[Rfam]
The record is a 115-nucleotide sequence from Haloplasma contractile, which matches "THF (Tetrahydrofolate) riboswitch aptamer" in Rfam. Gene Ontology term of the family: tetrahydrofolate metabolic process.

RNA sequence: CGCAGAGUAAAUGAAGUGCGUUAAGUGCUGUAGGAUGGGAUGUUGCCUACGGACGAAAAAGGACUGAUUAUUGAUUGAUCAGAUUCCUUUGCGAUACUUUGUUGCGUCCGCUGCA
Numbered sequence: 001c002g003c004a005g006a007g008u009a010a011a012u013g014a015a016g017u018g019c020g021u022u023a024a025g026u027g028c029u030g031u032a033g034g035a036u037g038g039g040a041u042g043u044u045g046c047c048u049a050c051g052g053a054c055g056a057a058a059a060a061g062g063a064c065u066g067a068u069u070a071u072u073g074a075u076u077g078a079u080c081a082g083a084u085u086c087c088u089u090u091g092c093g094a095u096a097c098u099u100u101g102u103u104g105c106g107u108c109c110g111c112u113g114c115a
Base pairs, nucleotide, nucleotide: 002114003113004112005111010103011102012101013100014099015098016097017096018095019093020092021091025054026053028052029051030050031049032048033047034046038109039108040107041106042105058090059089060088061087062086063085
Notes: The family has 101 seed sequences and 747 matches in Rfam 15.1.